[Rfam]
RNA sequence: CGCGCAGCAGGACGGAAAGACCCCGGGACCUUCACUAUAGCUUGACAUUGGUGUUUGGGAUGGUUUGUGUAGGAUAGGUGGGAGCCGGUGAAGCCGCCACGCCAGUGGUGGUGGAGGCGUUGGUGAAAUACCACUCUGGCUGUUUCGGGCAUCUAACCUUGGGCCGUGAUCCGGUUCGGGGACAGUGUCUGGUGGGUAGUUUAACUGGGGCGGUUGCCUCCUAAAGGGUAACGGAGGCGCCCAAAGGUUCCCUCGGCCUGGUUGGCAAUCAGGUGGUGAGUGUAAGUGCACAAGGGAGCUUGACUGUGAGACGGACGUGUCGAGCAGGUGCGAAAGCAGGGACUAGUGAUCCGGCGCCGGCGUGUGGAAGCGGCGUCGCUCAACGGCUAAAAGGUACCCCGGGGAUAACAGGCUGAUCUUCCCCAAGAGUCCGUAUCGACGGGAUGGUUUGGCACCUCGAUGUCGGCUCGUCGCAUCCUGGGGCUGGAGUUGGUCCCAAGGGUUGGGCUGUUCGCCCAUUAAAGCGGCACGCGAGCUGGGUUUAGAACGUCGUGAGACAGUUCGGUCCCUAUCCGCUGCGCGCGUU
Numbered sequence: 001c002g003c004g005c006a007g008c009a010g011g012a013c014g015g016a017a018a019g020a021c022c023c024c025g026g027g028a029c030c031u032u033c034a035c036u037a038u039a040g041c042u043u044g045a046c047a048u049u050g051g052u053g054u055u056u057g058g059g060a061u062g063g064u065u066u067g068u069g070u071a072g073g074a075u076a077g078g079u080g081g082g083a084g085c086c087g088g089u090g091a092a093g094c095c096g097c098c099a100c101g102c103c104a105g106u107g108g109u110g111g112u113g114g115a116g117g118c119g120u121u122g123g124u125g126a127a128a129u130a131c132c133a134c135u136c137u138g139g140c141u142g143u144u145u146c147g148g149g150c151a152u153c154u155a156a157c158c159u160u161g162g163g164c165c166g167u168g169a170u171c172c173g174g175u176u177c178g179g180g181g182a183c184a185g186u187g188u189c190u191g192g193u194g195g196g197u198a199g200u201u202u203a204a205c206u207g208g209g210g211c212g213g214u215u216g217c218c219u220c221c222u223a224a225a226g227g228g229u230a231a232c233g234g235a236g237g238c239g240c241c242c243a244a245a246g247g248u249u250c251c252c253u254c255g256g257c258c259u260g261g262u263u264g265g266c267a268a269u270c271a272g273g274u275g276g277u278g279a280g281u282g283u284a285a286g287u288g289c290a291c292a293a294g295g296g297a298g299c300u301u302g303a304c305u306g307u308g309a310g311a312c313g314g315a316c317g318u319g320u321c322g323a324g325c326a327g328g329u330g331c332g333a334a335a336g337c338a339g340g341g342a343c344u345a346g347u348g349a350u351c352c353g354g355c356g357c358c359g360g361c362g363u364g365u366g367g368a369a370g371c372g373g374c375g376u377c378g379c380u381c382a383a384c385g386g387c388u389a390a391a392a393g394g395u396a397c398c399c400c401g402g403g404g405a406u407a408a409c410a411g412g413c414u415g416a417u418c419u420u421c422c423c424c425a426a427g428a429g430u431c432c433g434u435a436u437c438g439a440c441g442g443g444a445u446g447g448u449u450u451g452g453c454a455c456c457u458c459g460a461u462g463u464c465g466g467c468u469c470g471u472c473g474c475a476u477c478c479u480g481g482g483g484c485u486g487g488a489g490u491u492g493g494u495c496c497c498a499a500g501g502g503u504u505g506g507g508c509u510g511u512u513c514g515c516c517c518a519u520u521a522a523a524g525c526g527g528c529a530c531g532c533g534a535g536c537u538g539g540g541u542u543u544a545g546a547a548c549g550u551c552g553u554g555a556g557a558c559a560g561u562u563c564g565g566u567c568c569c570u571a572u573c574c575g576c577u578g579c580g581c582g583c584g585u586u
Stems, first nucleotide, its partner, number of pairs: 001582008010574003014569002022403006028395005034200004041192002044189004050153016067136001077135005084118003093112008157180003161177006203215004216238006239384001241341002247299006253279002256274006280289002304327004310321003329338003352378007360371002412453003416450001417447002420444004427437002464539001465537004469531001470528005477502002480497006504518005545563004549558003
A member of the RNA family "Bacterial large subunit ribosomal RNA" from Streptomonospora alba, 586 nucleotides of a longer RNA. The family's consensus secondary structure is taken from published work. The match comes from Rfam's covariance-model search (2583 bits).